Description:
Rfam assigns this 137-nucleotide sequence from Gossypium gossypioides to the family "MIR7502 microRNA precursor family".
RNA sequence: UAUUAAAAAUUCAUCUAUUUCUACUAUUAAAAACCGGUAUAGCGAUGGAAUAACCAAACAGUUAUAUAUCCACGUAUACCUCAUGCUAACAUACAAUAACCAUCUUUUAGCGAUAAAAAUGGAUGAAUUUUUUAAUC
Numbered sequence: 001u002a003u004u005a006a007a008a009a010u011u012c013a014u015c016u017a018u019u020u021c022u023a024c025u026a027u028u029a030a031a032a033a034c035c036g037g038u039a040u041a042g043c044g045a046u047g048g049a050a051u052a053a054c055c056a057a058a059c060a061g062u063u064a065u066a067u068a069u070c071c072a073c074g075u076a077u078a079c080c081u082c083a084u085g086c087u088a089a090c091a092u093a094c095a096a097u098a099a100c101c102a103u104c105u106u107u108u109a110g111c112g113a114u115a116a117a118a119a120u121g122g123a124u125g126a127a128u129u130u131u132u133u134a135a136u137c
Base pairs, nucleotide, nucleotide: 002136003135004134005133006132007131008130009128010127011126012125013124014123015122017120018119019118020117022115023114025112027110028109029108030107031106032105

Lineage of the source: Eukaryota > Magnoliopsida > rosids > Malvales > Gossypium.
Rfam 15.1 lists 74,505 matches to the family in 24 species.
Gene Ontology terms of the family: RISC complex and miRNA-mediated post-transcriptional gene silencing.